[Rfam]
Nucleotides: 100
Base pairs, nucleotide, nucleotide: 019085020084021083022082023081024080025079029049030048031047032046033045034044035043059075060074061073062072063071
Number, partner (000 for none) and nucleotide at each position: 001000c002000c003000a004000u005000a006000g007000a008000u009000u010000a011000a012000a013000g014000a015000a016000c017000a018000a019085g020084u021083u022082c023081g024080u025079a026000u027000a028000u029049c030048c031047u032046c033045a034044a035043u036000a037000a038000u039000a040000u041000g042000g043035a044034u045033u046032g047031a048030g049029g050000g051000u052000c053000u054000c055000u056000a057000c058000a059075a060074g061073g062072a063071a064000c065000c066000a067000u068000a069000a070000a071063u072062u073061c074060c075059u076000g077000a078000c079025u080024a081023c082022g083021a084020a085019u086000a087000g088000g089000g090000u091000g092000c093000a094000u095000u096000c097000g098000c099000a100000u
A member of the RNA family "Purine riboswitch aptamer" from Paenibacillus sp. oral taxon 786, 100 nucleotides long. Its family is annotated with purine nucleobase biosynthetic process in the Gene Ontology. The base pairs follow the family's consensus structure, which is taken from published work. Taxonomically the source falls in Paenibacillus sp. oral taxon 786 (Bacteria, Bacilli, Paenibacillaceae, Paenibacillus).